RNA sequence: GGGUCCAUCUUCCAGCACAGUGUUGGGUGGUCUAAUGGUGAAGCUCCUAACACUGUCUGGUAAAGAUGGCCUC
Numbered sequence: 001g002g003g004u005c006c007a008u009c010u011u012c013c014a015g016c017a018c019a020g021u022g023u024u025g026g027g028u029g030g031u032c033u034a035a036u037g038g039u040g041a042a043g044c045u046c047c048u049a050a051c052a053c054u055g056u057c058u059g060g061u062a063a064a065g066a067u068g069g070c071c072u073c
Stems, first nucleotide, its partner, number of pairs: 002072002005069005010063002012060004017056011

Record summary:
Shown here is a 73-nucleotide sequence from Balaenoptera musculus, a member of the family "mir-8/mir-141/mir-200 microRNA precursor family". Rfam links the family to the GO terms miRNA-mediated post-transcriptional gene silencing and RISC complex. The base pairs follow the family's consensus structure, which was predicted with RNAalifold. The match comes from Rfam's covariance-model search (53 bits). The literature on the family includes a 2001 paper in Science by Lagos-Quintana et al., "Identification of novel genes coding for small expressed RNAs".